[Rfam]
RNA sequence: UGAGGGAGGGGGCCGUAGCAGAAGUGUUCACAUCGCAACCCCUAUCAGGUAAUACCUUCUCAUUUUCCU
Number, nucleotide and partner (000 for none) at each position: 001u000002g000003a000004g000005g000006g000007a000008g000009g042010g041011g040012g039013c000014c000015g000016u000017a069018g068019c000020a066021g065022a064023a063024g036025u035026g034027u000028u000029c000030a000031c000032a000033u000034c026035g025036c024037a000038a000039c012040c011041c010042c009043u000044a000045u000046c000047a057048g056049g055050u054051a000052a000053u000054a050055c049056c048057u047058u000059c000060u000061c000062a000063u023064u022065u021066u020067c000068c018069u017
Rfam assigns this 69-nucleotide sequence from Alligator sinensis to the family "Mammalian CPEB3 ribozyme". Its family is annotated with RNA nuclease activity in the Gene Ontology.